[Rfam]
RNA sequence: UGACCAUCCAGAGCGACUGAGGGAUCUGGCCCGACGACGUCGCAGCAACCGGCCUGAGGCAAGGUGCUAACGCCAGAGUCGAUGGGAG
Numbered sequence: 001u002g003a004c005c006a007u008c009c010a011g012a013g014c015g016a017c018u019g020a021g022g023g024a025u026c027u028g029g030c031c032c033g034a035c036g037a038c039g040u041c042g043c044a045g046c047a048a049c050c051g052g053c054c055u056g057a058g059g060c061a062a063g064g065u066g067c068u069a070a071c072g073c074c075a076g077a078g079u080c081g082a083u084g085g086g087a088g
Base pairs, nucleotide, nucleotide: 001088004085005084006083007082008081013043014042015041016040017039021032022031023030026076027075028074029073044068045067046066047065049064050063052060053059054058072080
RNA: SAM riboswitch aptamer (S box leader)
Organism: Garicola koreensis